[Rfam]
RNA: U8 small nucleolar RNA
Organism: Urocitellus parryii
RNA sequence: UUGUCAGUUUACAUAAUCCUUACCUGUUUCUACUUUUGGAAGGCAGAAUAGAACAUGAUGAUUGGAGUUUGUAUGGUAUGUGAUCAAUGAGUUUGCAUGGUCAGGCUAUAACACUUGCAACACCCGAUUGCUCCUGAUUCUUCUUACUGAC
Numbered sequence: 001u002u003g004u005c006a007g008u009u010u011a012c013a014u015a016a017u018c019c020u021u022a023c024c025u026g027u028u029u030c031u032a033c034u035u036u037u038g039g040a041a042g043g044c045a046g047a048a049u050a051g052a053a054c055a056u057g058a059u060g061a062u063u064g065g066a067g068u069u070u071g072u073a074u075g076g077u078a079u080g081u082g083a084u085c086a087a088u089g090a091g092u093u094u095g096c097a098u099g100g101u102c103a104g105g106c107u108a109u110a111a112c113a114c115u116u117g118c119a120a121c122a123c124c125c126g127a128u129u130g131c132u133c134c135u136g137a138u139u140c141u142u143c144u145u146a147c148u149g150a151c
Base pairs, nucleotide, nucleotide: 024046025045026044028043029042031040033038075093076092079089080088081086097141099139100138101137102136103135104134105133